[Rfam]
RNA: Streptomyces RNA 1601
RNA sequence: AGCGACCGGCCGGACACACACGUGCUCGGCCCACAAGUGGAGGCUCCGAACUCCCACCUGACCGUCCUCCGGGACGGCGGGUCACCCGGUCAGGCGGAAUCCGUCGCUCCCGGUGGAGCACGAACCGCCCGAAGCGCGCCCCGCGGCCAUCGCGGCGGUGCUCCGGCAGUCAGGAGCCCCGCCUGUGAUCGUCCGGGGCAUUUUUU
Numbered sequence: 001a002g003c004g005a006c007c008g009g010c011c012g013g014a015c016a017c018a019c020a021c022g023u024g025c026u027c028g029g030c031c032c033a034c035a036a037g038u039g040g041a042g043g044c045u046c047c048g049a050a051c052u053c054c055c056a057c058c059u060g061a062c063c064g065u066c067c068u069c070c071g072g073g074a075c076g077g078c079g080g081g082u083c084a085c086c087c088g089g090u091c092a093g094g095c096g097g098a099a100u101c102c103g104u105c106g107c108u109c110c111c112g113g114u115g116g117a118g119c120a121c122g123a124a125c126c127g128c129c130c131g132a133a134g135c136g137c138g139c140c141c142c143g144c145g146g147c148c149a150u151c152g153c154g155g156c157g158g159u160g161c162u163c164c165g166g167c168a169g170u171c172a173g174g175a176g177c178c179c180c181g182c183c184u185g186u187g188a189u190c191g192u193c194c195g196g197g198g199c200a201u202u203u204u205u206u
Stems, first nucleotide, its partner, number of pairs: 004091006012027002028083005034060002037057004041052002062077006093129005101116005138199006144191003151187003154183005160177005